[Rfam]
RNA sequence: ACACCCUUGAACAAUCUGUUCUUAUCAGUUUAAUAUCUGAUAUGUCCCCCAUCGGGGGACUAUACAUAUUAAAUGGAUUUUUCGAACAGGGAGUCGGAAGCGGGGCUUGCUCCGUCCGCUCCACGCAUCGACUCGGUAUUGCAGUACCUCCGAGAACGGUGCACCCUCU
Dot-bracket structure: ......................((((((........)))))).(((((((...))))))).............................(((((.((....((((....)))).)).)))))..((((((.(((((.............)))))..)))))).......

U2 spliceosomal RNA: a 169-nucleotide sequence from Esox lucius.
On this family, see Berglund et al., RNA 2001: "Crystal structure of a model branchpoint-U2 snRNA duplex containing bulged adenosines".
The organism belongs to Esox, within Eukaryota.
Pairs were carried over by alignment from the consensus structure, which is taken from published work.